[Rfam]
RNA sequence: CUUUCUGCACAGGUUGGGAUUGGUAGCAAUGCUGUGUGUUUUGGAAGGUAUUGCACUUGUCCCGGCCUGUAGAGGAUUG
Numbered sequence: 001c002u003u004u005c006u007g008c009a010c011a012g013g014u015u016g017g018g019a020u021u022g023g024u025a026g027c028a029a030u031g032c033u034g035u036g037u038g039u040u041u042u043g044g045a046a047g048g049u050a051u052u053g054c055a056c057u058u059g060u061c062c063c064g065g066c067c068u069g070u071a072g073a074g075g076a077u078u079g
Base pairs, nucleotide, nucleotide: 004075005074006073009070010069011068012067013066014065016063017062018061019060020059022057023056024055026054027053028052029051030050031049032048033047
A member of the RNA family "mir-92 microRNA precursor family" from Carassius auratus, 79 nucleotides long. The organism belongs to Carassius, within Eukaryota. The base pairs follow the family's consensus structure, which was predicted with PFOLD. Its Rfam clan is "mir-92 microRNA precursor clan". For this family Rfam cites "miRNPs: a novel class of ribonucleoproteins containing numerous microRNAs" (Mourelatos et al., Genes Dev, 2002). This family represents the microRNA precursor mir-92. Human miR-92 has two predicted hairpin precursor sequences: mir-92-1 on chromosome 13 and mir-92-2 on chromosome X. miR-92 has also been cloned from mouse embryonic stem cells. The mature sequence is excised from the 3' arm of the hairpin.